[Rfam]
RNA sequence: AACUGUGAAUGAUGAUUUUUGUUUAAAACAAUGGGAAUCUCUCUGAAAAAGAGUGAAAGAUAACAGUUUUCCUGAUGCAGUG
Dot-bracket structure: .((((((....................................................................)))))).
A member of the RNA family "Small nucleolar RNA SNORD79" from Echeneis naucrates, 82 nucleotides long. The organism belongs to Echeneis, within Eukaryota. Clan: SNORD74 clan. The base pairs follow the family's consensus structure, which was predicted with PFOLD. It scores 74 bits against the family's covariance model. snoRNA U79 or Z22 is found in intron 7 of the gas5 gene in humans and is also present in mice. Gene Ontology terms of the family: nucleolus and RNA processing. For this family Rfam cites "Classification of gas5 as a multi-small-nucleolar-RNA (snoRNA) host gene and a member of the 5'-terminal oligopyrimidine gene family reveals common features of snoRNA host genes" (Smith and Steitz, Mol Cell Biol, 1998).